[Rfam]
RNA sequence: ACAUCCCGCGCGGGAGAGUCCCCGCGUGCACCUUCGGGUCGCACGGCGGGGCGCCGAAGGGGCAAACUCCCCGGAACCUCUCAGGCGCCAGGACCGCGUGGGACAG
Numbered sequence: 001a002c003a004u005c006c007c008g009c010g011c012g013g014g015a016g017a018g019u020c021c022c023c024g025c026g027u028g029c030a031c032c033u034u035c036g037g038g039u040c041g042c043a044c045g046g047c048g049g050g051g052c053g054c055c056g057a058a059g060g061g062g063c064a065a066a067c068u069c070c071c072c073g074g075a076a077c078c079u080c081u082c083a084g085g086c087g088c089c090a091g092g093a094c095c096g097c098g099u100g101g102g103a104c105a106g
Base pairs, nucleotide, nucleotide: 006101007100008099009098010097011096012095013094020051021050022049023048024047025046053086054085055084056082057081060080061079062078067073
RNA: Glycine riboswitch aptamer
Organism: Pedococcus badiiscoriae